RNA sequence: AUGCAUGUGAUAAAGCAAAGCAGUAUGACGAACACCGUGAUACUGUAAACACUUUCUGAUGCU
Numbered sequence: 001a002u003g004c005a006u007g008u009g010a011u012a013a014a015g016c017a018a019a020g021c022a023g024u025a026u027g028a029c030g031a032a033c034a035c036c037g038u039g040a041u042a043c044u045g046u047a048a049a050c051a052c053u054u055u056c057u058g059a060u061g062c063u
Stems, first nucleotide, its partner, number of pairs: 003062003012055004021045006